[Rfam]
RNA sequence: CACGACUUGUCAGGAGAGAGCCCGCUCACCCAUCACAUAGGGAUGACGCGGGCCGCCGAAGGCGCAGGCAGACACCGAACGCUCAGGCAAAAGGACUGGCAAGCCGCC
Numbered sequence: 001c002a003c004g005a006c007u008u009g010u011c012a013g014g015a016g017a018g019a020g021c022c023c024g025c026u027c028a029c030c031c032a033u034c035a036c037a038u039a040g041g042g043a044u045g046a047c048g049c050g051g052g053c054c055g056c057c058g059a060a061g062g063c064g065c066a067g068g069c070a071g072a073c074a075c076c077g078a079a080c081g082c083u084c085a086g087g088c089a090a091a092a093g094g095a096c097u098g099g100c101a102a103g104c105c106g107c108c
Stems, first nucleotide, its partner, number of pairs: 006103008020053006055088003058084002062082003067076002
Record summary: This 108-nucleotide RNA from Diaphorobacter ruginosibacter belongs to the Rfam family "Glycine riboswitch aptamer". From the family's description: This family represents the bacterial glycine riboswitch.